[Rfam]
RNA sequence: CGAAUGGCAUCGGGAGAGUCCGCGCGUUCACCCUAUCGCGCGGCGCCGAAGGAGCAACCACCCCGGAAACUCUCAGGCACCAUGGACCGAUGCCCUGGA
Numbered sequence: 001c002g003a004a005u006g007g008c009a010u011c012g013g014g015a016g017a018g019u020c021c022g023c024g025c026g027u028u029c030a031c032c033c034u035a036u037c038g039c040g041c042g043g044c045g046c047c048g049a050a051g052g053a054g055c056a057a058c059c060a061c062c063c064c065g066g067a068a069a070c071u072c073u074c075a076g077g078c079a080c081c082a083u084g085g086a087c088c089g090a091u092g093c094c095c096u097g098g099a
Stems, first nucleotide, its partner, number of pairs: 006094008020043007045078003048074002052072003058066002